Rfam assigns this 160-nucleotide sequence from Cellulomonas fimi to the family "c-di-AMP riboswitch aptamer (ydaO/yuaA leader)".

RNA sequence: CCGUACGAACCGCCGGCAGGGGCGGGGGACCCACGUUUUGUGGUCCACCGGAGACGGUGACCUUGGGGUGAAGCCCAGGUGGCAGCAGGACCGCCGCCCAGGCCGAGUGUUCUCCCACUCGAACCCGACAGCUCACCUCGCAGGCGACAGGAGAGGCACC
Dot-bracket structure: ((...(..............)((((((....((..............................))(((.....((.........................))..((((........))))...))).........)))))).))................

It scores 52 bits against the family's covariance model. The family has 106 seed sequences and 7,607 matches in Rfam 15.1.